[Rfam]
RNA sequence: GGACCCGGCGGGCCGCUGACCUCCUGAAAGAACCGGGAGAAAGAACUCCCCGCCCACCCACCCUCCCCCGCGAGGAAGCCCGCGUCACCCGUCCGGGUGACCAGCUUGCAGGCCUGGGUCACGGACCGUUACGUUCGCCGCGACAACCGCACACAGACGACGGCCCCCGGCCGGGACUGGCAUCCCGAUCGAGGGCCUGACCGAUCAGGAAGAGCACACUUCCCG
Numbered sequence: 001g002g003a004c005c006c007g008g009c010g011g012g013c014c015g016c017u018g019a020c021c022u023c024c025u026g027a028a029a030g031a032a033c034c035g036g037g038a039g040a041a042a043g044a045a046c047u048c049c050c051c052g053c054c055c056a057c058c059c060a061c062c063c064u065c066c067c068c069c070g071c072g073a074g075g076a077a078g079c080c081c082g083c084g085u086c087a088c089c090c091g092u093c094c095g096g097g098u099g100a101c102c103a104g105c106u107u108g109c110a111g112g113c114c115u116g117g118g119u120c121a122c123g124g125a126c127c128g129u130u131a132c133g134u135u136c137g138c139c140g141c142g143a144c145a146a147c148c149g150c151a152c153a154c155a156g157a158c159g160a161c162g163g164c165c166c167c168c169g170g171c172c173g174g175g176a177c178u179g180g181c182a183u184c185c186c187g188a189u190c191g192a193g194g195g196c197c198u199g200a201c202c203g204a205u206c207a208g209g210a211a212g213a214g215c216a217c218a219c220u221u222c223c224c225g
Stems, first nucleotide, its partner, number of pairs: 007205001008202001014072003018069001085100006115137003162197005168191002173186004208223005
Dot-bracket structure: ......((.....(((.(..................................................))))............((((((....))))))..............(((.................)))........................(((((.((...((((......))))...)).)))))....)..)..(((((......)))))..
RNA: Streptomyces sRNA 4677